The record is a 148-nucleotide RNA from Trema andersonii, which matches "mir-393 microRNA precursor family" in Rfam.
RNA sequence: GAUGGAAAAUUCCCAAGGGAUUGCAUGAUCUAAUAACUUGAACUAAAAUUAAUAGUAAAAGAUCAUGUUAUCACUGAUUUGAUGAUCAUGGUUAUCAUCAAAGUCUCGAAUAUAAUUAGAUCAAUGCGAUCCCUUUGGAAGUUUCCAC
Numbered sequence: 001g002a003u004g005g006a007a008a009a010u011u012c013c014c015a016a017g018g019g020a021u022u023g024c025a026u027g028a029u030c031u032a033a034u035a036a037c038u039u040g041a042a043c044u045a046a047a048a049u050u051a052a053u054a055g056u057a058a059a060a061g062a063u064c065a066u067g068u069u070a071u072c073a074c075u076g077a078u079u080u081g082a083u084g085a086u087c088a089u090g091g092u093u094a095u096c097a098u099c100a101a102a103g104u105c106u107c108g109a110a111u112a113u114a115a116u117u118a119g120a121u122c123a124a125u126g127c128g129a130u131c132c133c134u135u136u137g138g139a140a141g142u143u144u145c146c147a148c
Stems, first nucleotide, its partner, number of pairs: 003147004008142001010140004015135007023127003026123009
A reference for the family is Kruszka et al. (2012), "Role of microRNAs and other sRNAs of plants in their changing environments", J Plant Physiol.